Overview
This 173-nucleotide sequence from Salinirubellus salinus belongs to the Rfam family "Sense overlapping transcript RNA 0042 (sot)". The match comes from Rfam's covariance-model search (109 bits). By type it is a small RNA. The family has 2 seed sequences and 196 matches in Rfam 15.1. It is associated with IS1341-type transposase (tnpB) genes, at the 3'-end in H. salinarum NRC-1. The tetraloop structural motif may be functional. Taxonomically the source falls in Salinirubellus (Archaea, Methanobacteriati, Halobacteria, Natronomonadaceae). The family's consensus secondary structure was predicted with RNAfold.
[Rfam]
RNA sequence: AGAUAACUCCGAGUCCUCGUGGCGAGGAUAGGAGUAACGGCUGUGUGGCACAGCCAUCGGUACACCUGUUCGAUUCAGACAGUGGGGUGUUCGCCCCGCGAGAACAGGUCGUGUCGUAGACCGUCAAAUAUCCCAACUUGCGGUACGGGAAGCCCCGGCGUUUACCCCGGGGA
Numbered sequence: 001a002g003a004u005a006a007c008u009c010c011g012a013g014u015c016c017u018c019g020u021g022g023c024g025a026g027g028a029u030a031g032g033a034g035u036a037a038c039g040g041c042u043g044u045g046u047g048g049c050a051c052a053g054c055c056a057u058c059g060g061u062a063c064a065c066c067u068g069u070u071c072g073a074u075u076c077a078g079a080c081a082g083u084g085g086g087g088u089g090u091u092c093g094c095c096c097c098g099c100g101a102g103a104a105c106a107g108g109u110c111g112u113g114u115c116g117u118a119g120a121c122c123g124u125c126a127a128a129u130a131u132c133c134c135a136a137c138u139u140g141c142g143g144u145a146c147g148g149g150a151a152g153c154c155c156c157g158g159c160g161u162u163u164a165c166c167c168c169g170g171g172g173a
Stems, first nucleotide, its partner, number of pairs: 004037001007034004013029007039055005058116006065108007084097005131150004136144002153172006160165001
Dot-bracket structure: ...(..((((..(((((((...))))))).))))..).(((((.......)))))..((((((.(((((((............(((((....)))))....)))))))..))))))..............((((.((.....))..))))..((((((.(....).)))))).